[Rfam]
RNA sequence: CCAAGUCCCGACGCACUCCCCCCGGCGCCGGGACCGCCCCCGAGCCGAGCUUCGGCGCCUCCCCCCUGGCGCCGGAGCUCGGCUCCUCC
Numbered sequence: 001c002c003a004a005g006u007c008c009c010g011a012c013g014c015a016c017u018c019c020c021c022c023c024g025g026c027g028c029c030g031g032g033a034c035c036g037c038c039c040c041c042g043a044g045c046c047g048a049g050c051u052u053c054g055g056c057g058c059c060u061c062c063c064c065c066c067u068g069g070c071g072c073c074g075g076a077g078c079u080c081g082g083c084u085c086c087u088c089c
Base pairs, nucleotide, nucleotide: 005034006033007032008031009030010029012027013026014025042085043084044083045082046081047080048079049078050077051076053074054073055072056071057070058069059068
Description
Shown here is an 89-nucleotide RNA from Streptomyces ruber, a member of the family "Streptomyces RNA 3202". It scores 72 bits against the family's covariance model. Identified by deep sequencing of transcriptome at the end of exponential growth phase. Appears smaller on northern blot than sequencing transcript. This indicates processing step. The literature on the family includes a 2011 paper in RNA Biol by Vockenhuber et al., "Deep sequencing-based identification of small non-coding RNAs in Streptomyces coelicolor".